Rfam assigns this 114-nucleotide sequence from Psychrilyobacter sp. S5 to the family "FMN riboswitch aptamer (RFN element)". Rfam 15.1 lists 6,230 matches to the family in 5,120 species. Its family is annotated with FMN binding in the Gene Ontology. Rfam describes the family as follows. The RFN element is a highly conserved domain that is found frequently in the 5'-untranslated regions of prokaryotic mRNAs that encode for flavin mononucleotide (FMN) biosynthesis and transport proteins. The family's consensus secondary structure is taken from published work.
RNA sequence: UAUGAACUUCGGGGCAGGGUGUGAUUCCCUACCGGCGGUAAUAGUCCGCGAGCGUAAGCUGAACUAGUGAAAUUCUGGUACCGACAGUGAUAGUCUGGAUGAAAGAAGUUUUUU
Numbered sequence: 001u002a003u004g005a006a007c008u009u010c011g012g013g014g015c016a017g018g019g020u021g022u023g024a025u026u027c028c029c030u031a032c033c034g035g036c037g038g039u040a041a042u043a044g045u046c047c048g049c050g051a052g053c054g055u056a057a058g059c060u061g062a063a064c065u066a067g068u069g070a071a072a073u074u075c076u077g078g079u080a081c082c083g084a085c086a087g088u089g090a091u092a093g094u095c096u097g098g099a100u101g102a103a104a105g106a107a108g109u110u111u112u113u114u
Stems, first nucleotide, its partner, number of pairs: 004111007017029003031094002033083002035049004044081002052059002063079005085097003